[Rfam]
Small nucleolar RNA SNORD75: a 69-nucleotide RNA from Larimichthys crocea.
The family has 5 seed sequences and 767 matches in Rfam 15.1.
Taxonomically the source falls in Larimichthys (Eukaryota, Opisthokonta, Metazoa, Eurypterygia).
A search with the family's covariance model found it, with a score of 50 bits.
RNA sequence: AACUGAUGAUGUUUGUUAUAUAAGAGUAGUGGACAGAAGAUGGUUUCUGAAACAGAUUUAGCUGAGGUU
Numbered sequence: 001a002a003c004u005g006a007u008g009a010u011g012u013u014u015g016u017u018a019u020a021u022a023a024g025a026g027u028a029g030u031g032g033a034c035a036g037a038a039g040a041u042g043g044u045u046u047c048u049g050a051a052a053c054a055g056a057u058u059u060a061g062c063u064g065a066g067g068u069u
Base pairs, nucleotide, nucleotide: 001069002068003067004066